[Rfam]
RNA sequence: CGCACAAAGCGCAUGAUGACAAAACCAUGAGACUGACUGUAUGAAGUACAUUCAAUCCAACACUGAGCUUUGUGUC
Numbered sequence: 001c002g003c004a005c006a007a008a009g010c011g012c013a014u015g016a017u018g019a020c021a022a023a024a025c026c027a028u029g030a031g032a033c034u035g036a037c038u039g040u041a042u043g044a045a046g047u048a049c050a051u052u053c054a055a056u057c058c059a060a061c062a063c064u065g066a067g068c069u070u071u072g073u074g075u076c
Stems, first nucleotide, its partner, number of pairs: 002075009
The record is a 76-nucleotide sequence from Sylvia atricapilla, which matches "Small nucleolar RNA SNORD69" in Rfam. The family's RNA type in Rfam is C/D-box small nucleolar RNA. Gene Ontology terms of the family: nucleolus and RNA processing. From the family's description: snoRNA HBII-210 belongs to the C/D family of snoRNAs. It is the human orthologue of the mouse MBII-210 and is predicted to guide the 2'O-ribose methylation of large 28S rRNA on residue G4464. The match comes from Rfam's covariance-model search (50 bits). The pairing is the family consensus, mapped onto this sequence. The family has 11 seed sequences and 524 matches in Rfam 15.1.